RNA sequence: AUAACUUUUAGUUAUUUAUUGUCACUCAUUCUGGUUUCUAUUCUUGUCAGUUUAAUAUCUGAUACAUCCCCUAGCCGGGGACCGCAUAUUCGAUUUUUGGAACUUGGAGAUGGAAUAGGGUUUUGAUCCGUCCACUCCACGCGUCAACCUGGUGUUGCAGUAUGUCCAGGAUUGGUUUAGGGGGC
Numbered sequence: 001a002u003a004a005c006u007u008u009u010a011g012u013u014a015u016u017u018a019u020u021g022u023c024a025c026u027c028a029u030u031c032u033g034g035u036u037u038c039u040a041u042u043c044u045u046g047u048c049a050g051u052u053u054a055a056u057a058u059c060u061g062a063u064a065c066a067u068c069c070c071c072u073a074g075c076c077g078g079g080g081a082c083c084g085c086a087u088a089u090u091c092g093a094u095u096u097u098u099g100g101a102a103c104u105u106g107g108a109g110a111u112g113g114a115a116u117a118g119g120g121u122u123u124u125g126a127u128c129c130g131u132c133c134a135c136u137c138c139a140c141g142c143g144u145c146a147a148c149c150u151g152g153u154g155u156u157g158c159a160g161u162a163u164g165u166c167c168a169g170g171a172u173u174g175g176u177u178u179a180g181g182g183g184g185c
Stems, first nucleotide, its partner, number of pairs: 007024001011020001045064006067081005106138004112132002118129004141178001143176004148170005

The family of this 185-nucleotide sequence from Muraenolepis orangiensis is "U2 spliceosomal RNA".
Clan: U2 clan.
The source organism's lineage runs through Eukaryota, Vertebrata, Actinopterygii, Clupeocephala and Muraenolepis.
It scores 72 bits against the family's covariance model.
Pairs were carried over by alignment from the consensus structure, which is taken from published work.